[Rfam]
RNA sequence: UCCCCGCUUUUCCUCCCUGAGCGGGUGCCUUGUUGUGUGACAGCAAAAAGGCUUCCCACCCCGGCUUUGCGGCCGGGGUUUUUUUU
Number, nucleotide and partner (000 for none) at each position: 001u000002c000003c025004c024005c023006g022007c021008u020009u000010u000011u000012c000013c000014u000015c000016c000017c000018u000019g000020a008021g007022c006023g005024g004025g003026u000027g052028c051029c050030u049031u000032g000033u046034u045035g044036u000037g000038u000039g000040a000041c000042a000043g000044c035045a034046a033047a000048a000049a030050g029051g028052c027053u000054u000055c000056c000057c000058a000059c078060c077061c076062c075063g074064g073065c072066u071067u000068u000069g000070c000071g066072g065073c064074c063075g062076g061077g060078g059079u000080u000081u000082u000083u000084u000085u000086u000